[Rfam]
RNA sequence: UUUCUGCGGUGAUGAAUCACAUGUCAGACUUCAGAGGUUUUCACUAAUCUUUAAGAAGAGAGUUUAUUUAUUCUGGGCAGGAU
Numbered sequence: 001u002u003u004c005u006g007c008g009g010u011g012a013u014g015a016a017u018c019a020c021a022u023g024u025c026a027g028a029c030u031u032c033a034g035a036g037g038u039u040u041u042c043a044c045u046a047a048u049c050u051u052u053a054a055g056a057a058g059a060g061a062g063u064u065u066a067u068u069u070a071u072u073c074u075g076g077g078c079a080g081g082a083u
Stems, first nucleotide, its partner, number of pairs: 002082006036049004

A member of the RNA family "Small nucleolar RNA R64/Z200 family" from Papaver somniferum, 83 nucleotides long.
By type it is a C/D-box small nucleolar RNA.
Pairs were carried over by alignment from the consensus structure, which was predicted with PFOLD.
It scores 53 bits against the family's covariance model.